[Rfam]
RNA sequence: GGGUGCCUGAGACUUUCUGUUUUCAGGCUAACCGGGAAUCAGAAAGACGAAGGCCCCGACCGAUAUUUCUAUCAACCGAGGCCAACGAAUGAACCUAGCAAUUCAGAUCUUAGCCUCUUACCCGCCAUCCGGCAAGGAGAAAGGCUAUG
Numbered sequence: 001g002g003g004u005g006c007c008u009g010a011g012a013c014u015u016u017c018u019g020u021u022u023u024c025a026g027g028c029u030a031a032c033c034g035g036g037a038a039u040c041a042g043a044a045a046g047a048c049g050a051a052g053g054c055c056c057c058g059a060c061c062g063a064u065a066u067u068u069c070u071a072u073c074a075a076c077c078g079a080g081g082c083c084a085a086c087g088a089a090u091g092a093a094c095c096u097a098g099c100a101a102u103u104c105a106g107a108u109c110u111u112a113g114c115c116u117c118u119u120a121c122c123c124g125c126c127a128u129c130c131g132g133c134a135a136g137g138a139g140a141a142a143g144g145c146u147a148u149g
Stems, first nucleotide, its partner, number of pairs: 001057003005054004011048001013046007021038002024036001058077001062073004078117005087109002090105004121144002
RNA: sok antitoxin (CssrC)
Organism: Escherichia coli